Shown here is a 154-nucleotide RNA from Amborella trichopoda, a member of the family "MIR8565 microRNA precursor family". The base pairs follow the family's consensus structure, which was predicted with RNAalifold. Taxonomically the source falls in Amborella (Eukaryota, Embryophyta, Spermatophyta, Amborellales).
[Rfam]
RNA sequence: CUUAUACCCAUGUGUGUAGGACGCCAAAGGAUCACCAUUACGUUUGACAUAAAUCUUUAGAAAAGUUAUCUCAUGGGUGUGGGACUUGACUUUUCUAGAGAUCUUUGUCAAAUUUAAUGGUAAUCCUUUGGGGUCCUACACACAUGGGUAUGGG
Numbered sequence: 001c002u003u004a005u006a007c008c009c010a011u012g013u014g015u016g017u018a019g020g021a022c023g024c025c026a027a028a029g030g031a032u033c034a035c036c037a038u039u040a041c042g043u044u045u046g047a048c049a050u051a052a053a054u055c056u057u058u059a060g061a062a063a064a065g066u067u068a069u070c071u072c073a074u075g076g077g078u079g080u081g082g083g084a085c086u087u088g089a090c091u092u093u094u095c096u097a098g099a100g101a102u103c104u105u106u107g108u109c110a111a112a113u114u115u116a117a118u119g120g121u122a123a124u125c126c127u128u129u130g131g132g133g134u135c136c137u138a139c140a141c142a143c144a145u146g147g148g149u150a151u152g153g154g
Stems, first nucleotide, its partner, number of pairs: 002153012015140008024131005030125003034121007042113008051104001053102016069082002072079002